[Rfam]
RNA sequence: UGUGAUUAUAGAGGCGCAAAUAUUAUCAGUAUAUAUAGUGAGCUGGCAGCAAUGAACUAUAUAGAAAGGAAUAAUUGCCGAAACAAAAGGAAAUGCCAUUUUUCUUGUUGUUGGGCUUGUAUUAAAUAAGUACAAGACUGUCAUCUAAAAGAUUCAUUUAGAUGAAGUGCUAUCUCACGC
Numbered sequence: 001u002g003u004g005a006u007u008a009u010a011g012a013g014g015c016g017c018a019a020a021u022a023u024u025a026u027c028a029g030u031a032u033a034u035a036u037a038g039u040g041a042g043c044u045g046g047c048a049g050c051a052a053u054g055a056a057c058u059a060u061a062u063a064g065a066a067a068g069g070a071a072u073a074a075u076u077g078c079c080g081a082a083a084c085a086a087a088a089g090g091a092a093a094u095g096c097c098a099u100u101u102u103u104c105u106u107g108u109u110g111u112u113g114g115g116c117u118u119g120u121a122u123u124a125a126a127u128a129a130g131u132a133c134a135a136g137a138c139u140g141u142c143a144u145c146u147a148a149a150a151g152a153u154u155c156a157u158u159u160a161g162a163u164g165a166a167g168u169g170c171u172a173u174c175u176c177a178c179g180c
Base pairs, nucleotide, nucleotide: 008173009172010171011170016078017077018076019075021073022072023071024070032063033062034061035060036059037058038057039056082112083111084110085109086108088106089105090104091103092102093101113139114138116136117135118134119133120132121131122130123129141165142164143163144162145161146160147159